This 109-nucleotide RNA from Buttiauxella agrestis belongs to the Rfam family "ArcZ RNA". The match comes from Rfam's covariance-model search (75 bits). Rfam describes the family as follows. This RNA was discovered in E. coli during a large scale screen. SraH expression is highly abundant in stationary phase, but low levels could be detected in exponentially growing cells as well. ArcZ RNA function as an activator of the alternative sigma factor RpoS as a response of stress. Rfam links the family to the GO terms regulation of translation and protein binding.
RNA sequence: CAGCACACGAGAUUAUCGGCUGCGCCAUUUGGAUAAAGACUUAUAACUCAACGGCGCAGCCUACUUUUUCCCUGGUGUUGGCGCAGAAUUCGCGCACCCCGGUUUAUCC
Numbered sequence: 001c002a003g004c005a006c007a008c009g010a011g012a013u014u015a016u017c018g019g020c021u022g023c024g025c026c027a028u029u030u031g032g033a034u035a036a037a038g039a040c041u042u043a044u045a046a047c048u049c050a051a052c053g054g055c056g057c058a059g060c061c062u063a064c065u066u067u068u069u070c071c072c073u074g075g076u077g078u079u080g081g082c083g084c085a086g087a088a089u090u091c092g093c094g095c096a097c098c099c100c101g102g103u104u105u106a107u108c109c
Stems, first nucleotide, its partner, number of pairs: 019060008074098003081095004

The base pairs follow the family's consensus structure, which was predicted with PFOLD. The literature on the family includes a 2001 paper in Curr Biol by Argaman et al., "Novel small RNA-encoding genes in the intergenic regions of Escherichia coli".